[Rfam]
c-di-AMP riboswitch aptamer (ydaO/yuaA leader): a 147-nucleotide RNA sequence from a Streptomycetaceae bacterium.
Pairs were carried over by alignment from the consensus structure.
The organism belongs to Streptomycetaceae, within Bacteria.
RNA sequence: CCCCCGUAGGCGCCCGGCACGCACCGGAGCCGGGGACCCAUGUGUCACCCGAGGCGAAUCGGCUGCCAGGGCCACCUGGCGCGCCGUAGGGCGUCUUCUUCCGCCCGAGCCUGUCAGCUAACCCGGUAGGCGGCCGAGGAAGGAGUG
Numbered sequence: 001c002c003c004c005c006g007u008a009g010g011c012g013c014c015c016g017g018c019a020c021g022c023a024c025c026g027g028a029g030c031c032g033g034g035g036a037c038c039c040a041u042g043u044g045u046c047a048c049c050c051g052a053g054g055c056g057a058a059u060c061g062g063c064u065g066c067c068a069g070g071g072c073c074a075c076c077u078g079g080c081g082c083g084c085c086g087u088a089g090g091g092c093g094u095c096u097u098c099u100u101c102c103g104c105c106c107g108a109g110c111c112u113g114u115c116a117g118c119u120a121a122c123c124c125g126g127u128a129g130g131c132g133g134c135c136g137a138g139g140a141a142g143g144a145g146u147g
Base pairs, nucleotide, nucleotide: 001027002026029127030126031125032124033123034122039051052112053111054110060086061085062084063083089106090105091104092103
Dot-bracket structure: ((.......................)).((((((....(...........)(((.....((((...................))))..((((..........))))...))).........))))))....................
It scores 61 bits against the family's covariance model.